Shown here is a 106-nucleotide sequence from Jiangella aurantiaca, a member of the family "TPP riboswitch aptamer (THI element)". Rfam describes the family as follows. Vitamin B(1) in its active form thiamin pyrophosphate (TPP) is an essential coenzyme that is synthesised by coupling of pyrimidine and thiazole moieties in bacteria. The base pairs follow the family's consensus structure, which is taken from published work. It scores 66 bits against the family's covariance model.
RNA sequence: UACCCACGACAGGGGAGCGCUGCAGCGCUGAGAGUGCGGGACAGGCCCGCAGACCCUCGAACCUGAUCCGGGUAAUGCCGGCGCAGGAAGUCGACACCUCGACCGC
Number, nucleotide and partner (000 for none) at each position: 001u000002a000003c000004c000005c000006a000007c093008g092009a091010c090011a057012g056013g055014g054015g000016a000017g028018c027019g026020c025021u000022g000023c000024a000025g020026c019027g018028c017029u000030g000031a000032g000033a000034g000035u051036g050037c049038g048039g047040g000041a000042c000043a000044g000045g000046c000047c039048c038049g037050c036051a035052g000053a000054c014055c013056c012057u011058c000059g000060a000061a000062c087063c086064u085065g084066a000067u000068c081069c080070g079071g078072g000073u000074a000075a000076u000077g000078c071079c070080g069081g068082c000083g000084c065085a064086g063087g062088a000089a000090g010091u009092c008093g007094a000095c000096a000097c000098c000099u000100c000101g000102a000103c000104c000105g000106c000
NCBI's taxonomy places the organism under Bacteria, Actinomycetota, Jiangellales, Jiangellaceae, Jiangella.